[Rfam]
RNA sequence: AGCUCCACCGGAUCGCACGCACGCGUGACGACCAGGUAGUCGCGCAGCGCGAUGCCGUGGCGGUUCUC
Numbered sequence: 001a002g003c004u005c006c007a008c009c010g011g012a013u014c015g016c017a018c019g020c021a022c023g024c025g026u027g028a029c030g031a032c033c034a035g036g037u038a039g040u041c042g043c044g045c046a047g048c049g050c051g052a053u054g055c056c057g058u059g060g061c062g063g064u065u066c067u068c
Stems, first nucleotide, its partner, number of pairs: 004063002008059001013028001016027004035056004040052005
The family of this 68-nucleotide RNA from Mycolicibacterium smegmatis is "ASdes TB sRNA". NCBI's taxonomy places the organism under Bacteria, Actinomycetes, Mycobacteriaceae, Mycobacterium, Mycolicibacterium smegmatis. It is one of the family's seed sequences.